[Rfam]
Rfam assigns this 201-nucleotide sequence from Paenibacillus sp. GP183 to the family "c-di-AMP riboswitch aptamer (ydaO/yuaA leader)". Rfam's curators write: This family represents a conserved RNA structure found upstream of the ydaO and yuaA genes in Bacillus subtilis and related genes in other bacteria. The match comes from Rfam's covariance-model search (86 bits). The pairing is the family consensus, mapped onto this sequence.
RNA sequence: AUUUUCCAUUCGCUGAGUUCUUUUUAUGGGAAACGGGGGAACCGCUGUGAAACACCAGGAAGACCACAAGUCAUCUGGAUGUGCACAGAAUGUUUAUCAGGGGUGAAUCCAAAGACGACAAGCCAAGCUUGCGUACUAGGUAGGGCGACUCUCACGUCCGAAUCCGUCAGCUAACCUCGUAAGCGUAUCGAGAGAGGAACG
Numbered sequence: 001a002u003u004u005u006c007c008a009u010u011c012g013c014u015g016a017g018u019u020c021u022u023u024u025u026a027u028g029g030g031a032a033a034c035g036g037g038g039g040a041a042c043c044g045c046u047g048u049g050a051a052a053c054a055c056c057a058g059g060a061a062g063a064c065c066a067c068a069a070g071u072c073a074u075c076u077g078g079a080u081g082u083g084c085a086c087a088g089a090a091u092g093u094u095u096a097u098c099a100g101g102g103g104u105g106a107a108u109c110c111a112a113a114g115a116c117g118a119c120a121a122g123c124c125a126a127g128c129u130u131g132c133g134u135a136c137u138a139g140g141u142a143g144g145g146c147g148a149c150u151c152u153c154a155c156g157u158c159c160g161a162a163u164c165c166g167u168c169a170g171c172u173a174a175c176c177u178c179g180u181a182a183g184c185g186u187a188u189c190g191a192g193a194g195a196g197g198a199a200c201g
Base pairs, nucleotide, nucleotide: 011185012184013183014182018032019031020030033180034179035178036177037176038175043100101165102164103163109140110139112137143159144158145157146156